Overview
The record is an 81-nucleotide sequence from Sphingopyxis indica, which matches "Glycine riboswitch aptamer" in Rfam. The organism belongs to Sphingopyxis, within Bacteria.

RNA sequence: CAGCUGGAGAGUGACGGCCAUCGCGCCGUCCACCGAAGGAGCAAGCGCCGCGGCGUGAAUCUCUCAGGUUUCUGACAGCGG
Numbered sequence: 001c002a003g004c005u006g007g008a009g010a011g012u013g014a015c016g017g018c019c020a021u022c023g024c025g026c027c028g029u030c031c032a033c034c035g036a037a038g039g040a041g042c043a044a045g046c047g048c049c050g051c052g053g054c055g056u057g058a059a060u061c062u063c064u065c066a067g068g069u070u071u072c073u074g075a076c077a078g079c080g081g
Stems, first nucleotide, its partner, number of pairs: 001081001003079004013030004032069003035065002039063003045056002